[Rfam]
SAM riboswitch aptamer (S box leader): a 116-nucleotide RNA from Intrasporangium chromatireducens. The literature on the family includes a 2013 paper in RNA by Daldrop and Lilley, "The plasticity of a structural motif in RNA: structural polymorphism of a kink turn as a function of its environment". NCBI's taxonomy places the organism under Bacteria, Actinomycetota, Micrococcales, Intrasporangium, Intrasporangium chromatireducens.

RNA sequence: CGCUCAUCCAGAGGGGCAGAGGGAAACGGCCCGUUGAAGCCCCGGCAACCCGGCCUUCCGAGAUCUUCGGAGCCGACAGGUGCCACGUCCGUCCCGCCUCGCGGGAAAGAUGAGAA
Numbered sequence: 001c002g003c004u005c006a007u008c009c010a011g012a013g014g015g016g017c018a019g020a021g022g023g024a025a026a027c028g029g030c031c032c033g034u035u036g037a038a039g040c041c042c043c044g045g046c047a048a049c050c051c052g053g054c055c056u057u058c059c060g061a062g063a064u065c066u067u068c069g070g071a072g073c074c075g076a077c078a079g080g081u082g083c084c085a086c087g088u089c090c091g092u093c094c095c096g097c098c099u100c101g102c103g104g105g106a107a108a109g110a111u112g113a114g115a116a
Base pairs, nucleotide, nucleotide: 003114004113005112006111007110008109013043014042015041016040017039021032022031023030026092027091028090029089044084045083046082047081049080050079051075052074053073054072088108093105094104095103096102097101